[Rfam]
RNA sequence: CCAACAGAGCUCAGUUGGCAGUAUGCCCACCUCCAUAUAAAUAUGUAAAUAUGCAUAUAUGACAGGGAAAAUAAAAGAGAGAAAUUGUUCUAUUGAUAAAGGAGGUGGACAGAAUGCCAAUAAGCUCUGUAAG
Numbered sequence: 001c002c003a004a005c006a007g008a009g010c011u012c013a014g015u016u017g018g019c020a021g022u023a024u025g026c027c028c029a030c031c032u033c034c035a036u037a038u039a040a041a042u043a044u045g046u047a048a049a050u051a052u053g054c055a056u057a058u059a060u061g062a063c064a065g066g067g068a069a070a071a072u073a074a075a076a077g078a079g080a081g082a083a084a085u086u087g088u089u090c091u092a093u094u095g096a097u098a099a100a101g102g103a104g105g106u107g108g109a110c111a112g113a114a115u116g117c118c119a120a121u122a123a124g125c126u127c128u129g130u131a132a133g
Stems, first nucleotide, its partner, number of pairs: 011123001015120006024111002027108008
RNA: MIR394 microRNA precursor family
Organism: Ricinus communis